[Rfam]
RNA: t44 RNA
RNA sequence: CAGGUGAGCAACCAACGACGCACACAUGCCGCAACCCGCCCCAGGGUGCCGCCGCGCCGCGAGGCCCGGAGGUUUGGACGCGGGGGUAUGUGGAGGACUAAC
Numbered sequence: 001c002a003g004g005u006g007a008g009c010a011a012c013c014a015a016c017g018a019c020g021c022a023c024a025c026a027u028g029c030c031g032c033a034a035c036c037c038g039c040c041c042c043a044g045g046g047u048g049c050c051g052c053c054g055c056g057c058c059g060c061g062a063g064g065c066c067c068g069g070a071g072g073u074u075u076g077g078a079c080g081c082g083g084g085g086g087u088a089u090g091u092g093g094a095g096g097a098c099u100a101a102c
Stems, first nucleotide, its partner, number of pairs: 023092008035083002037080002040077002043074001048073003052069003